[Rfam]
RNA sequence: UCGCAAAACCAAACUGCUUACCGAUUUUUUUUAAAAAAAUUUCACUACCAAACCCAUACAUCCAAAAUGGCUCCCUGCAACUGCACCUGCUGCGCUGGUGACUGCAACUCCUGCAGCUGCACCAGCUGCUCUGUAAGUCAUACAAGAAA
Numbered sequence: 001u002c003g004c005a006a007a008a009c010c011a012a013a014c015u016g017c018u019u020a021c022c023g024a025u026u027u028u029u030u031u032u033a034a035a036a037a038a039a040u041u042u043c044a045c046u047a048c049c050a051a052a053c054c055c056a057u058a059c060a061u062c063c064a065a066a067a068u069g070g071c072u073c074c075c076u077g078c079a080a081c082u083g084c085a086c087c088u089g090c091u092g093c094g095c096u097g098g099u100g101a102c103u104g105c106a107a108c109u110c111c112u113g114c115a116g117c118u119g120c121a122c123c124a125g126c127u128g129c130u131c132u133g134u135a136a137g138u139c140a141u142a143c144a145a146g147a148a149a
Stems, first nucleotide, its partner, number of pairs: 076100003083093003104129003113120002
The record is a 149-nucleotide sequence from Emergomyces africanus, which matches "A. fumigatus sRNA Afu_254" in Rfam. Rfam classes the family as a small RNA. Pairs were carried over by alignment from the consensus structure, which was predicted with WAR. Taxonomically the source falls in Emergomyces (Eukaryota, Pezizomycotina, Eurotiomycetidae, Onygenales). For this family Rfam cites "Small ncRNA transcriptome analysis from Aspergillus fumigatus suggests a novel mechanism for regulation of protein synthesis" (Jochl et al., Nucleic Acids Res, 2008).